[Rfam]
RNA: Bacterial large subunit ribosomal RNA, nucleotides 1828 to 2192
RNA sequence: CGAGUGAACUGUGGUUAAGGAACUCGGCAAAAUGCCCCCGUAACUUCGGGAGAAGGGGGGCCACUUCCUGUGUAGGAGCUUUGCCUCCGAAGCGGGGAGGGGCCGCAGAGACCAGGGGAAAGCGACUGUUUACUAAAAACACAGCUCCGUGCGAAGUCGUAAGACGAUGUAUACGGAGUGACGCCUGCCCGGUGCUGGAACGUUAAGGGGACGGGUUAGCUCUUCGGGGCGAAGCUCAGAACUUAAGCGCCAGUAAACGGCGGUGGUAACUAUAACCAUCCUAAGGUAGCGAAAUUCCUUGUCGGGUAAGUUCCGACCUGCACGAAUGGCGUAACGACUUUCCUACUGUCUCAACCACAGACUCG
Numbered sequence: 001c002g003a004g005u006g007a008a009c010u011g012u013g014g015u016u017a018a019g020g021a022a023c024u025c026g027g028c029a030a031a032a033u034g035c036c037c038c039c040g041u042a043a044c045u046u047c048g049g050g051a052g053a054a055g056g057g058g059g060g061c062c063a064c065u066u067c068c069u070g071u072g073u074a075g076g077a078g079c080u081u082u083g084c085c086u087c088c089g090a091a092g093c094g095g096g097g098a099g100g101g102g103c104c105g106c107a108g109a110g111a112c113c114a115g116g117g118g119a120a121a122g123c124g125a126c127u128g129u130u131u132a133c134u135a136a137a138a139a140c141a142c143a144g145c146u147c148c149g150u151g152c153g154a155a156g157u158c159g160u161a162a163g164a165c166g167a168u169g170u171a172u173a174c175g176g177a178g179u180g181a182c183g184c185c186u187g188c189c190c191g192g193u194g195c196u197g198g199a200a201c202g203u204u205a206a207g208g209g210g211a212c213g214g215g216u217u218a219g220c221u222c223u224u225c226g227g228g229g230c231g232a233a234g235c236u237c238a239g240a241a242c243u244u245a246a247g248c249g250c251c252a253g254u255a256a257a258c259g260g261c262g263g264u265g266g267u268a269a270c271u272a273u274a275a276c277c278a279u280c281c282u283a284a285g286g287u288a289g290c291g292a293a294a295u296u297c298c299u300u301g302u303c304g305g306g307u308a309a310g311u312u313c314c315g316a317c318c319u320g321c322a323c324g325a326a327u328g329g330c331g332u333a334a335c336g337a338c339u340u341u342c343c344u345a346c347u348g349u350c351u352c353a354a355c356c357a358c359a360g361a362c363u364c365g
Stems, first nucleotide, its partner, number of pairs: 001365004009360008018351003035059005044049001060103003064099002078093006104108001116344007123336002127141003144179008152169001156165003182331004187261003192258002194254005201249003207243002213237004219230004262280006281285001291318001301317006